Background: The family of this 71-nucleotide RNA sequence from Natronorubrum bangense is "S15-Halobacteria ribosomal protein leader". The sequence is in the family's curated seed alignment. The literature on the family includes a 2020 paper in BMC Microbiol by Eckert and Weinberg, "Discovery of 20 novel ribosomal leader candidates in bacteria and archaea". The source organism's lineage runs through Archaea, Methanobacteriati, Methanobacteriota, Natronorubrum and Natronorubrum bangense. The family is grouped with related families in Rfam's "Ribosomal Protein S15 Leader clan". Rfam classes the family as a cis-regulatory leader.
RNA sequence: AUGGGAAGCGCACGGCCGCAAAUCCGACUGUGCCAUCCACUGUUUCGGAUGGCUUGGGAUUGCGGAAGUGC
Dot-bracket structure: .........((((..((((((..((......(((((((........)))))))...)).))))))..))))